[Rfam]
RNA sequence: UAGAAAAUAAUAUAAAGGAAGUAUGGAGGGUUUUGAUCUCUCUUGUACAGGUUCGAUUCCUGUUUUUCUAA
Numbered sequence: 001u002a003g004a005a006a007a008u009a010a011u012a013u014a015a016a017g018g019a020a021g022u023a024u025g026g027a028g029g030g031u032u033u034u035g036a037u038c039u040c041u042c043u044u045g046u047a048c049a050g051g052u053u054c055g056a057u058u059c060c061u062g063u064u065u066u067u068c069u070a071a
Stems, first nucleotide, its partner, number of pairs: 001070007010024004026042005047063005